A member of the RNA family "small nucleolar RNA snoR114" from Hibiscus syriacus, 87 nucleotides long. Rfam classes the family as a C/D-box small nucleolar RNA. For this family Rfam cites "Mining small RNA sequencing data: a new approach to identify small nucleolar RNAs in Arabidopsis" (Chen and Wu, Nucleic Acids Res, 2009). The base pairs follow the family's consensus structure, which was predicted with RNAalifold. The match comes from Rfam's covariance-model search (49 bits). NCBI's taxonomy places the organism under Eukaryota, Magnoliopsida, Malvales, Malvaceae, Hibiscus.
RNA sequence: AAGUAGGGAAGAAUGCUGCGCUUCUAGUGAAUAUAGGGUUCUUCACGAUCGUCAUAUUCAAAACGACACAACAGCGCCUCCGAACUU
Numbered sequence: 001a002a003g004u005a006g007g008g009a010a011g012a013a014u015g016c017u018g019c020g021c022u023u024c025u026a027g028u029g030a031a032u033a034u035a036g037g038g039u040u041c042u043u044c045a046c047g048a049u050c051g052u053c054a055u056a057u058u059c060a061a062a063a064c065g066a067c068a069c070a071a072c073a074g075c076g077c078c079u080c081c082g083a084a085c086u087u
Stems, first nucleotide, its partner, number of pairs: 001087004